[Rfam]
RNA sequence: CAGAGAUGAUGAACUUCUUGAUGGGCGGACAGAGACUGUGUGCUGAUUGUCAUGUUCUGAUUUG
Numbered sequence: 001c002a003g004a005g006a007u008g009a010u011g012a013a014c015u016u017c018u019u020g021a022u023g024g025g026c027g028g029a030c031a032g033a034g035a036c037u038g039u040g041u042g043c044u045g046a047u048u049g050u051c052a053u054g055u056u057c058u059g060a061u062u063u064g
Stems, first nucleotide, its partner, number of pairs: 001064004
RNA: Small nucleolar RNA SNORD43
Organism: Physeter macrocephalus